[Rfam]
Notes
Transposase-2 RNA: a 71-nucleotide RNA.
Nucleotides: 071
Stems, first nucleotide, its partner, number of pairs: 011044005018033001020031003048067008
Number, partner (000 for none) and nucleotide at each position: 001000g002000a003000a004000g005000c006000g007000c008000g009000a010000a011044c012043c013042a014041a015040g016000c017000g018033g019000u020031c021030a022029c023000c024000u025000g026000c027000u028000g029022g030021u031020g032000u033018c034000g035000u036000g037000a038000g039000a040015c041014u042013u043012g044011g045000a046000g047000c048067u049066g050065g051064c052063c053062u054061u055060g056000g057000c058000a059000a060055c061054g062053a063052g064051g065050c066049u067048a068000u069000g070000c071000a

It is one of the family's seed sequences.
Rfam classes the family as a small RNA.